[Rfam]
RNA: c-di-AMP riboswitch aptamer (ydaO/yuaA leader)
Nucleotides: 186
Stems, first nucleotide, its partner, number of pairs: 011171004018058008060165005069098001099151003107127003130145004
Number, partner (000 for none) and nucleotide at each position: 001000a002000a003000g004000a005000g006000c007000g008000a009000a010000a011171c012170g013169c014168c015000g016000a017000a018058c019057c020056c021055u022054g023053c024052c025051a026000u027000c028000g029000c030000u031000c032000g033000a034000g035000c036000u037000a038000g039000c040000c041000c042000a043000c044000g045000a046000c047000c048000c049000g050000c051025u052024g053023g054022c055021a056020g057019g058018g059000a060165c061164g062163g063162g064161g065000g066000a067000c068000c069098c070000a071000u072000a073000a074000c075000u076000g077000g078000g079000c080000a081000c082000u083000g084000g085000u086000c087000g088000c089000a090000g091000u092000g093000u094000c095000c096000u097000c098069g099151g100150g101149g102000u103000g104000a105000a106000g107127u108126c109125g110000u111000a112000u113000g114000a115000a116000a117000a118000g119000u120000u121000c122000a123000u124000u125109c126108g127107g128000c129000c130145g131144g132143g133142u134000g135000u136000u137000c138000u139000c140000c141000u142133a143132c144131c145130c146000g147000a148000a149101c150100c151099c152000g153000a154000c155000a156000g157000c158000u159000g160000a161064c162063c163062u164061c165060g166000c167000a168014g169013g170012c171011g172000u173000c174000a175000u176000u177000g178000g179000a180000g181000a182000u183000a184000a185000a186000c